[Rfam]
RNA: MIR159 microRNA precursor family
RNA sequence: UGGUUAAAAGUAGAGCUCCUUGAAGUCCAAAAGAAGGCCUAACUAGGGCAUAAUACAGCUGCUGAUAUAUGGUUAUCCAUAGUCCUAUCCAUUUUAAUGGGUGUUGAUGAUAGGCCUUUGGUUUUGCAUAUCUCAGGAGCUGUCAUUUGCCCUCUCAAGGUUUGGUCAUUUUUUGGAUUGAAGGGAGCUCUACAUCCCCCUUCU
Numbered sequence: 001u002g003g004u005u006a007a008a009a010g011u012a013g014a015g016c017u018c019c020u021u022g023a024a025g026u027c028c029a030a031a032a033g034a035a036g037g038c039c040u041a042a043c044u045a046g047g048g049c050a051u052a053a054u055a056c057a058g059c060u061g062c063u064g065a066u067a068u069a070u071g072g073u074u075a076u077c078c079a080u081a082g083u084c085c086u087a088u089c090c091a092u093u094u095u096a097a098u099g100g101g102u103g104u105u106g107a108u109g110a111u112a113g114g115c116c117u118u119u120g121g122u123u124u125u126g127c128a129u130a131u132c133u134c135a136g137g138a139g140c141u142g143u144c145a146u147u148u149g150c151c152c153u154c155u156c157a158a159g160g161u162u163u164g165g166u167c168a169u170u171u172u173u174u175g176g177a178u179u180g181a182a183g184g185g186a187g188c189u190c191u192a193c194a195u196c197c198c199c200c201u202u203c204u
Base pairs, nucleotide, nucleotide: 013190014189015188016187017186018185019184020183024179025178026177027176028175029174036167059139060138062136063135064134068130069129070128071127